[Rfam]
RNA: T-box leader
RNA sequence: AUUUAGGCUAUGAAGAGGGUCAGUAGAUUGAAAGAUUCUUAAAGGGAGGAAGACCCAUCGACUGAAAGGUCUUCUAAGAUUAUUUCAUUCGAACCCACCCUCUAAGCUGCAAGCGAUUAAGUUUGUCCGUUGGCCAACGUUACAGGCUUUGAGAGGAUUAAGUAGUAUUUCUAUUUAAUCAAUUUGGGUGGUACCGCGAAUUACCUUCGUCCCAUAG
Numbered sequence: 001a002u003u004u005a006g007g008c009u010a011u012g013a014a015g016a017g018g019g020u021c022a023g024u025a026g027a028u029u030g031a032a033a034g035a036u037u038c039u040u041a042a043a044g045g046g047a048g049g050a051a052g053a054c055c056c057a058u059c060g061a062c063u064g065a066a067a068g069g070u071c072u073u074c075u076a077a078g079a080u081u082a083u084u085u086c087a088u089u090c091g092a093a094c095c096c097a098c099c100c101u102c103u104a105a106g107c108u109g110c111a112a113g114c115g116a117u118u119a120a121g122u123u124u125g126u127c128c129g130u131u132g133g134c135c136a137a138c139g140u141u142a143c144a145g146g147c148u149u150u151g152a153g154a155g156g157a158u159u160a161a162g163u164a165g166u167a168u169u170u171c172u173a174u175u176u177a178a179u180c181a182a183u184u185u186g187g188g189u190g191g192u193a194c195c196g197c198g199a200a201u202u203a204c205c206u207u208c209g210u211c212c213c214a215u216a217g
Stems, first nucleotide, its partner, number of pairs: 007107002015102004026090002029087003037079003048075008109126006128139003156180010185214004196210005